Small nucleolar RNA snoR14: a 65-nucleotide RNA sequence from Actinidia chinensis. It is annotated as a C/D-box small nucleolar RNA. The literature on the family includes a 2001 paper in RNA by Brown et al., "Multiple snoRNA gene clusters from Arabidopsis".
RNA sequence: GCGAGGCGAUGGUAGAAAUUCAUGUAGCGUGAUGUUAAUAAUGAAACCCGACAGGUUCUGAUUGC
Number, nucleotide and partner (000 for none) at each position: 001g065002c064003g063004a062005g000006g000007c000008g000009a000010u000011g000012g000013u000014a000015g000016a000017a000018a000019u000020u000021c000022a000023u000024g000025u000026a000027g000028c000029g000030u000031g000032a000033u000034g000035u000036u000037a000038a000039u000040a000041a000042u000043g000044a000045a000046a000047c000048c000049c000050g000051a000052c000053a000054g000055g000056u000057u000058c000059u000060g000061a000062u004063u003064g002065c001